The record is a 298-nucleotide RNA sequence from Smithornis capensis, which matches "Metazoan signal recognition particle RNA" in Rfam.
A reference for the family is Rosenblad et al. (2009), "Kinship in the SRP RNA family", RNA Biol.
Pairs were carried over by alignment from the consensus structure, which is taken from published work.
The signal recognition particle (SRP) is a universally conserved ribonucleoprotein. It is involved in the co-translational targeting of proteins to membranes.
By type it is a non-coding RNA gene.

RNA sequence: GCUGGAUACGGUGGUUUGUGCCUGUGAUCUCAGUGCUGGGAAGGCUGAGGUUGGUGCACGGCUGAAUUCCAGGGAUUUUGGGCUGCAGAGAGUUGUGCCGAGUGGGUGUCCAUGUGAAGUUUGGUGUGGAUAUGGUGAUCCUGAGGGAGCUGGGCGCCACCAGGUCACCUGAGGAAGGGUGAACUGGGCCAGGCUGAGGUGGAGCAGGUCCCAAUUCAGGUGUUGAUCCAUACUGGGACAGUGCAGGUGAAUAUUCCCGGUAGCACAGUCUGGGGAAGAGAGCAGGACCUAGUCUCCU
Dot-bracket structure: (((((.(((((....))))).))....(((........)))).)).((((((((....(.(((...(((((((....(((.(((((.(.(.(.(((.(...((..((((((.((..(.(.(((((((.(((.(((((.(.((.((....)).)).).))))).))).((...))..((((.....((.(....((.....))....).))...))))..))))))).)..)..))))...))))..))).))).)).).))))).)))))))))).....))).)...))))))))..